[Rfam]
RNA sequence: UAUGAGAGUGAUGAGUUGCACUAAUCAGCUGGGGUGUCUGUUGCUGUGCCGCAGCGCUCCAAUCUGAUCAUUCCUGAUGACACGCCAUUGUGCACAGGGGCCAUCUGACUCACU
Numbered sequence: 001u002a003u004g005a006g007a008g009u010g011a012u013g014a015g016u017u018g019c020a021c022u023a024a025u026c027a028g029c030u031g032g033g034g035u036g037u038c039u040g041u042u043g044c045u046g047u048g049c050c051g052c053a054g055c056g057c058u059c060c061a062a063u064c065u066g067a068u069c070a071u072u073c074c075u076g077a078u079g080a081c082a083c084g085c086c087a088u089u090g091u092g093c094a095c096a097g098g099g100g101c102c103a104u105c106u107g108a109c110u111c112a113c114u
Base pairs, nucleotide, nucleotide: 004113006111007110008109025067026066027065028064030061031060032059034057035056036055040052041051043049044048

About this RNA
A member of the RNA family "Small nucleolar RNA SNORD67" from Gouania willdenowi, 114 nucleotides long. For this family Rfam cites "RNomics: an experimental approach that identifies 201 candidates for novel, small, non-messenger RNAs in mouse" (Huttenhofer et al., EMBO J, 2001). snoRNA HBII-166 belongs to the C/D family of snoRNAs.